RNA sequence: UUGCCGGAGCGGGAGUUUUCACCGAUUGAUCCCGCCAGUCGAUGGGCCGAAGAAGAACGGCGGUAGGCCCGCGGACGGCAG
Numbered sequence: 001u002u003g004c005c006g007g008a009g010c011g012g013g014a015g016u017u018u019u020c021a022c023c024g025a026u027u028g029a030u031c032c033c034g035c036c037a038g039u040c041g042a043u044g045g046g047c048c049g050a051a052g053a054a055g056a057a058c059g060g061c062g063g064u065a066g067g068c069c070c071g072c073g074g075a076c077g078g079c080a081g
Stems, first nucleotide, its partner, number of pairs: 001081006010034004040073002043071006
A member of the RNA family "CyVA-1 RNA" from Candidatus Solibacter usitatus, 81 nucleotides long. Rfam's curators put it in the seed alignment. Rfam's curators write: Cyanobacteria, Acidobacteria (1 example), Verrucomicrobia (1 example). By type it is a small RNA. Lineage of the source: Bacteria > Terriglobia > Bryobacterales > Solibacteraceae > Candidatus Solibacter usitatus.